[Rfam]
RNA sequence: CGGACCGGUCAGGCAGCCGCUGGUGGCUUCGCGCCACUGGAGGAAAGUCCGGGCUCCAUAGGGCAGGGUGCCAGGUAACGCCUGGGGGCCGCGCUGGCGACGGCGCGGUCACGGCAAGUGCCGCAGAAAACAGACCGCCGGCUUCUUCGGAAACCGGUAAGGGUGAAAAGGUGCGGUAAGAGCGCACCGCGCCGCUGGUAACAGCGGUGGCAGGGUAAACCCCACCCGGAGCAAGACCAAAUAGGGAUCCCAUGGCGUGGCCCGCGCUGGAUCCGGGUAGGUCGCUUGAGGCCCGCGGUGACGCGGGUCCCAGAUGAAUGGCUGCCCACGACAGAACCCGGCUUAUCGACCGGUCCACCCA
Numbered sequence: 001c002g003g004a005c006c007g008g009u010c011a012g013g014c015a016g017c018c019g020c021u022g023g024u025g026g027c028u029u030c031g032c033g034c035c036a037c038u039g040g041a042g043g044a045a046a047g048u049c050c051g052g053g054c055u056c057c058a059u060a061g062g063g064c065a066g067g068g069u070g071c072c073a074g075g076u077a078a079c080g081c082c083u084g085g086g087g088g089c090c091g092c093g094c095u096g097g098c099g100a101c102g103g104c105g106c107g108g109u110c111a112c113g114g115c116a117a118g119u120g121c122c123g124c125a126g127a128a129a130a131c132a133g134a135c136c137g138c139c140g141g142c143u144u145c146u147u148c149g150g151a152a153a154c155c156g157g158u159a160a161g162g163g164u165g166a167a168a169a170g171g172u173g174c175g176g177u178a179a180g181a182g183c184g185c186a187c188c189g190c191g192c193c194g195c196u197g198g199u200a201a202c203a204g205c206g207g208u209g210g211c212a213g214g215g216u217a218a219a220c221c222c223c224a225c226c227c228g229g230a231g232c233a234a235g236a237c238c239a240a241a242u243a244g245g246g247a248u249c250c251c252a253u254g255g256c257g258u259g260g261c262c263c264g265c266g267c268u269g270g271a272u273c274c275g276g277g278u279a280g281g282u283c284g285c286u287u288g289a290g291g292c293c294c295g296c297g298g299u300g301a302c303g304c305g306g307g308u309c310c311c312a313g314a315u316g317a318a319u320g321g322c323u324g325c326c327c328a329c330g331a332c333a334g335a336a337c338c339c340g341g342c343u344u345a346u347c348g349a350c351c352g353g354u355c356c357a358c359c360c361a
Stems, first nucleotide, its partner, number of pairs: 002356009011346001012326007020040008045344003049341005054231004061263004066227005071085005086112001087110010113222002118220002120216003135162002137158005143152003170188006189211001190209008235283004245274006254268005290309008

Record summary: Shown here is a 361-nucleotide sequence from Alloalcanivorax marinus, a member of the family "Bacterial RNase P class A". A search with the family's covariance model found it, with a score of 327 bits. Lineage of the source: Bacteria > Pseudomonadati > Gammaproteobacteria > Alcanivoracaceae > Alloalcanivorax. The family's RNA type in Rfam is ribozyme.